[Rfam]
RNA sequence: UGACCCCGUACGGGAGAGUCCGUGCCGGAAGGGCUCCGGUACGGCGCCGAAGGAGCAACCCCUCCCCGAUAACCUCUCAGGCCAUGGGACCGUACGGGCGAG
Numbered sequence: 001u002g003a004c005c006c007c008g009u010a011c012g013g014g015a016g017a018g019u020c021c022g023u024g025c026c027g028g029a030a031g032g033g034c035u036c037c038g039g040u041a042c043g044g045c046g047c048c049g050a051a052g053g054a055g056c057a058a059c060c061c062c063u064c065c066c067c068g069a070u071a072a073c074c075u076c077u078c079a080g081g082c083c084a085u086g087g088g089a090c091c092g093u094a095c096g097g098g099c100g101a102g
Stems, first nucleotide, its partner, number of pairs: 006097008020044008046082003049078002053076003060068001
The record is a 102-nucleotide RNA from Actinopolyspora mortivallis, which matches "Glycine riboswitch aptamer" in Rfam. The organism belongs to Actinopolyspora, within Bacteria.